[Rfam]
RNA sequence: GCAAUGGCUGGCUAGGGUUCCGGUCCGCGCAGGCGGAUGACUGGUCCGAGAGCUGGCGACCUCCAGCGAGGUUACACGGCGGGACAAAAGCCCGGGAGAA
Numbered sequence: 001g002c003a004a005u006g007g008c009u010g011g012c013u014a015g016g017g018u019u020c021c022g023g024u025c026c027g028c029g030c031a032g033g034c035g036g037a038u039g040a041c042u043g044g045u046c047c048g049a050g051a052g053c054u055g056g057c058g059a060c061c062u063c064c065a066g067c068g069a070g071g072u073u074a075c076a077c078g079g080c081g082g083g084a085c086a087a088a089a090g091c092c093c094g095g096g097a098g099a100a
Stems, first nucleotide, its partner, number of pairs: 007057006015047002020044002022041001023038006058073006075095001077098001081093003

A member of the RNA family "Guanidine-I riboswitch aptamer" from Pseudomonas sp. FeS53a, 100 nucleotides long. Lineage of the source: Bacteria > Gammaproteobacteria > Pseudomonadales > Pseudomonadaceae > Pseudomonas.